Antisense RNA which regulates isiA expression: a 178-nucleotide RNA sequence from Calothrix sp. NIES-3974. The match comes from Rfam's covariance-model search (136 bits). A reference for the family is Duhring et al. (2006), "An internal antisense RNA regulates expression of the photosynthesis gene isiA", Proc Natl Acad Sci U S A.
[Rfam]
RNA sequence: UAUAGCCAAAAAUAGUCGCCGGGUUCAAUGUCGGAUUACUAAUCAAACGUACUUCCCCCAGGUUAGCAUCAUAAAUCCCUCCAAAAAACAUCGCCUUUAAAACUAAUAAAAAAGCUCCACAACCUAAGAUUAUCAAGUGAUGUCCCAAGAUUAAGCCCAAUUGUUUAGGGUCAUUCCA
Numbered sequence: 001u002a003u004a005g006c007c008a009a010a011a012a013u014a015g016u017c018g019c020c021g022g023g024u025u026c027a028a029u030g031u032c033g034g035a036u037u038a039c040u041a042a043u044c045a046a047a048c049g050u051a052c053u054u055c056c057c058c059c060a061g062g063u064u065a066g067c068a069u070c071a072u073a074a075a076u077c078c079c080u081c082c083a084a085a086a087a088a089c090a091u092c093g094c095c096u097u098u099a100a101a102a103c104u105a106a107u108a109a110a111a112a113a114g115c116u117c118c119a120c121a122a123c124c125u126a127a128g129a130u131u132a133u134c135a136a137g138u139g140a141u142g143u144c145c146c147a148a149g150a151u152u153a154a155g156c157c158c159a160a161u162u163g164u165u166u167a168g169g170g171u172c173a174u175u176c177c178a
Stems, first nucleotide, its partner, number of pairs: 136175006144169002147166002